[Rfam]
RNA sequence: UUGUAAAAGUAUGUUUAGCUGUAGAGCUUAUUCCUUAUAGCAUUUGUGAGGGCAUAUUGAAGAA
Numbered sequence: 001u002u003g004u005a006a007a008a009g010u011a012u013g014u015u016u017a018g019c020u021g022u023a024g025a026g027c028u029u030a031u032u033c034c035u036u037a038u039a040g041c042a043u044u045u046g047u048g049a050g051g052g053c054a055u056a057u058u059g060a061a062g063a064a
Stems, first nucleotide, its partner, number of pairs: 008058006015030001017028004033051008
Shown here is a 64-nucleotide sequence, a member of the family "S4-Fusobacteriales ribosomal protein leader". The family is grouped with related families in Rfam's "Ribosomal Protein S4 Leader clan". The literature on the family includes a 2020 paper in BMC Microbiol by Eckert and Weinberg, "Discovery of 20 novel ribosomal leader candidates in bacteria and archaea".